[Rfam]
RNA: Small nucleolar RNA SNORD59
Organism: Neogobius melanostomus
RNA sequence: UCUUCUGUGAUGAUUUUCAGUGACUUUCGUUCUUCUGAGUAUACUGAAGCCACCAUUACUGUCCUGAGAAGA
Numbered sequence: 001u002c003u004u005c006u007g008u009g010a011u012g013a014u015u016u017u018c019a020g021u022g023a024c025u026u027u028c029g030u031u032c033u034u035c036u037g038a039g040u041a042u043a044c045u046g047a048a049g050c051c052a053c054c055a056u057u058a059c060u061g062u063c064c065u066g067a068g069a070a071g072a
Stems, first nucleotide, its partner, number of pairs: 001072003005068001